RNA sequence: AAUAAUAGUUGAAUUUUCCUUCGUAUAAUAAUGGGGAUAUGGCCCAUGAGUUUCUACCCGAUAACCGUAAAUUAUUGGACUAUGAGGGAAAGUAGUUUCCUA
Dot-bracket structure: .................((((((((...(.(((((.......))))).)........(((((((.......)))))))..))))))))..............
RNA: Purine riboswitch aptamer
Organism: Mesobacillus foraminis